[Rfam]
Rfam assigns this 128-nucleotide sequence from Treponema denticola to the family "TD-1 RNA". The family has 28 seed sequences and 147 matches in Rfam 15.1. A reference for the family is Weinberg et al. (2007), "Identification of 22 candidate structured RNAs in bacteria using the CMfinder comparative genomics pipeline", Nucleic Acids Res.
RNA sequence: AAAACACUGCGAGUUUGCCUUGCGGGCAAACUUCGCUUUAUUGUAUGCCGUUUCUCACUUUGUUGCGAAACGGCGGAAAAUAAGCAAUGCUCAGAAACUGAUGUUUCUUCCGCUUGCUUAUUUUAAUA
Dot-bracket structure: ..........((((((((((...)))))))).))............((((((((............))))))))....(((((((((.((..((((((....))))))...)))))))))))......
The base pairs follow the family's consensus structure, which is taken from published work. Lineage of the source: Bacteria > Spirochaetota > Spirochaetia > Treponema > Treponema denticola.